[Rfam]
Shown here is a 149-nucleotide RNA sequence from Vagococcus teuberi, a member of the family "glmS glucosamine-6-phosphate activated ribozyme aptamer". By type it is a riboswitch. NCBI's taxonomy places the organism under Bacteria, Bacillota, Bacilli, Lactobacillales, Vagococcus. The match comes from Rfam's covariance-model search (88 bits).
Nucleotides: 149
Base pairs, nucleotide, nucleotide: 020034021033022032023031024030025029043075044074045073046072047071052063053062054061055060076088077087079085093139094138095137096136097135098134099133107124108123109122110121111120113118
Number, partner (000 for none) and nucleotide at each position: 001000c002000u003000a004000u005000a006000c007000c008000a009000a010000u011000u012000a013000g014000c015000g016000c017000c018000a019000g020034a021033c022032c023031u024030u025029u026000u027000u028000a029025a030024a031023a032022g033021g034020u035000g036000a037000c038000g039000a040000g041000g042000a043075a044074u045073g046072a047071g048000u049000u050000u051000a052063u053062c054061g055060a056000a057000a058000a059000u060055u061054c062053g063052g064000c065000g066000g067000g068000u069000g070000g071047c072046u073045c074044a075043u076088a077087g078000g079085g080000g081000a082000u083000u084000g085079c086000a087077c088076u089000c090000u091000g092000a093139a094138g095137a096136u097135a098134a099133a100000g101000a102000c103000a104000a105000a106000a107124a108123a109122a110121c111120a112000g113118g114000g115000a116000a117000a118113c119000a120111u121110g122109u123108u124107u125000g126000a127000c128000a129000a130000a131000a132000c133099u134098u135097u136096a137095u138094c139093u140000a141000u142000g143000c144000a145000a146000u147000a148000a149000g